[Rfam]
A member of the RNA family "permuted transfer-messenger RNA" from Magnetospirillum gryphiswaldense, 213 nucleotides long.
RNA sequence: GGCGCUAAACGUCUUGUGGAAUAGGCCUUGCGGACCCGGGGGCGGUACCCGGCGCCUCCACCAAACCAUCCGAGGUUACGAUCGGACGAUUGGGGGCGAAAUAGGAUCGACGCGGGUAGUAAAGACUUGGCUUGUGCUCGGCAUGGUACCACCGUUAUCGGGCUAAAUCUCACAAGUGCCAACGACAACGUUGAACUUGCCGCUGCGGCGUAA
Numbered sequence: 001g002g003c004g005c006u007a008a009a010c011g012u013c014u015u016g017u018g019g020a021a022u023a024g025g026c027c028u029u030g031c032g033g034a035c036c037c038g039g040g041g042g043c044g045g046u047a048c049c050c051g052g053c054g055c056c057u058c059c060a061c062c063a064a065a066c067c068a069u070c071c072g073a074g075g076u077u078a079c080g081a082u083c084g085g086a087c088g089a090u091u092g093g094g095g096g097c098g099a100a101a102u103a104g105g106a107u108c109g110a111c112g113c114g115g116g117u118a119g120u121a122a123a124g125a126c127u128u129g130g131c132u133u134g135u136g137c138u139c140g141g142c143a144u145g146g147u148a149c150c151a152c153c154g155u156u157a158u159c160g161g162g163c164u165a166a167a168u169c170u171c172a173c174a175a176g177u178g179c180c181a182a183c184g185a186c187a188a189c190g191u192u193g194a195a196c197u198u199g200c201c202g203c204u205g206c207g208g209c210g211u212a213a
Base pairs, nucleotide, nucleotide: 001138002137003136004135005134016126017125026116027115028114030113031112032111036052037051038050039049040048053098054097055096056095057094058093059092139154140153141152
Pairs were carried over by alignment from the consensus structure, which is taken from published work. Bacterial tmRNA, also known as 10Sa RNA or SsrA, is named for its dual tRNA and mRNA-like properties. Its role is to liberate the mRNA from a stalled ribosome. To accomplish this part of the tmRNA is used as a reading frame that ends in a translation stop signal. By type it is a non-coding RNA gene. A search with the family's covariance model found it, with a score of 147 bits. A reference for the family is Williams and Bartel (1996), "Phylogenetic analysis of tmRNA secondary structure", RNA.